[Rfam]
RNA sequence: UUUCGUUCUCAGGGCGGGGUGAAAGUCCCCACCGGCGGUAGGGGGCCUGUCCCCGAGCCCGCGAGCGCCUCCGGCAAAGUCGGAGGGUCAGCAGAUCCGGUCGAAAUCCGGAGCCGACGGUCACAGUCCGGAUGAUAGAGAAUGUGG
Dot-bracket structure: ...(((((((......(((.......))).[[((((((..................[[))))..((........................))...(((((.......)))))]])).(((.....]]))).......)))))))...
Rfam assigns this 147-nucleotide sequence from Ciceribacter sp. L1K22 to the family "FMN riboswitch aptamer (RFN element)".
It scores 107 bits against the family's covariance model.